[Rfam]
RNA: U1 spliceosomal RNA
Organism: Sapajus apella
RNA sequence: UCACUUACCUGGCAGGAAAGAUACCCUGAGCACAAAGGUGGUUUCACAGGGUGAGGUUCACUAAUUACAUUGUUUGUGCUAGCCCCUGUGGUUUUCCCAAAUGUGGGAGACUCAACUGCAUAAUUUGUGGUAGUGGGCCACUGUGUUCAUGUUUUCCCCUG
Numbered sequence: 001u002c003a004c005u006u007a008c009c010u011g012g013c014a015g016g017a018a019a020g021a022u023a024c025c026c027u028g029a030g031c032a033c034a035a036a037g038g039u040g041g042u043u044u045c046a047c048a049g050g051g052u053g054a055g056g057u058u059c060a061c062u063a064a065u066u067a068c069a070u071u072g073u074u075u076g077u078g079c080u081a082g083c084c085c086c087u088g089u090g091g092u093u094u095u096c097c098c099a100a101a102u103g104u105g106g107g108a109g110a111c112u113c114a115a116c117u118g119c120a121u122a123a124u125u126u127g128u129g130g131u132a133g134u135g136g137g138c139c140a141c142u143g144u145g146u147u148c149a150u151g152u153u154u155u156c157c158c159c160u161g
Stems, first nucleotide, its partner, number of pairs: 012119004016047001020044002023042003027038001048087004053083001055080003059076002089114003092110003096106002135159003140155001143152003